RNA sequence: GCUUUAAAUUAAAUAACCAUCCAUAUAGGUCUGACAAUAGGGGUCAGGCGUUUCUACAAAGAGGCCGUAAACUUCUUAACUAUGGGUGAAUCCAGGUUCUAU
Numbered sequence: 001g002c003u004u005u006a007a008a009u010u011a012a013a014u015a016a017c018c019a020u021c022c023a024u025a026u027a028g029g030u031c032u033g034a035c036a037a038u039a040g041g042g043g044u045c046a047g048g049c050g051u052u053u054c055u056a057c058a059a060a061g062a063g064g065c066c067g068u069a070a071a072c073u074u075c076u077u078a079a080c081u082a083u084g085g086g087u088g089a090a091u092c093c094a095g096g097u098u099c100u101a102u
Stems, first nucleotide, its partner, number of pairs: 018088008029049007059077006
RNA: Purine riboswitch aptamer